[Rfam]
Rfam assigns this 121-nucleotide sequence from Saccharothrix coeruleofusca to the family "FMN riboswitch aptamer (RFN element)". Lineage of the source: Bacteria > Bacillati > Actinomycetes > Pseudonocardiaceae > Saccharothrix. From the family's description: The RFN element is a highly conserved domain that is found frequently in the 5'-untranslated regions of prokaryotic mRNAs that encode for flavin mononucleotide (FMN) biosynthesis and transport proteins.
RNA sequence: CAUGCGCUCCGGGGCUCGGUGAAAGUCCGAACCGGCGGUACAGCCCGCGACCCGCCGCCAGGCGGUUGAUCCGGUGGAACUCCGGAGCCGACGGUGAAAGUCCGGAUGAGAGGCGCGCAGG
Numbered sequence: 001c002a003u004g005c006g007c008u009c010c011g012g013g014g015c016u017c018g019g020u021g022a023a024a025g026u027c028c029g030a031a032c033c034g035g036c037g038g039u040a041c042a043g044c045c046c047g048c049g050a051c052c053c054g055c056c057g058c059c060a061g062g063c064g065g066u067u068g069a070u071c072c073g074g075u076g077g078a079a080c081u082c083c084g085g086a087g088c089c090g091a092c093g094g095u096g097a098a099a100g101u102c103c104g105g106a107u108g109a110g111a112g113g114c115g116c117g118c119a120g121g
Base pairs, nucleotide, nucleotide: 003119004118005117006116007115009113010112017029018028019027031101032100033090034089035048036047037046038045043088044087052065053064070086071085072084073083074082092104093103094102